About this RNA:
L31-Actinobacteria ribosomal protein leader: a 45-nucleotide RNA from Actinocorallia herbida. The family is grouped with related families in Rfam's "Ribosomal Protein L31 Leader clan". It is annotated as a cis-regulatory leader.
[Rfam]
RNA sequence: CAGGUUCCGGUUCCCGGCCGCGGACGUCUCGGUCGAUCCGGCGCC
Numbered sequence: 001c002a003g004g005u006u007c008c009g010g011u012u013c014c015c016g017g018c019c020g021c022g023g024a025c026g027u028c029u030c031g032g033u034c035g036a037u038c039c040g041g042c043g044c045c
Base pairs, nucleotide, nucleotide: 003045004044005043007041008040009039010038015035016034017033018032019031020030022028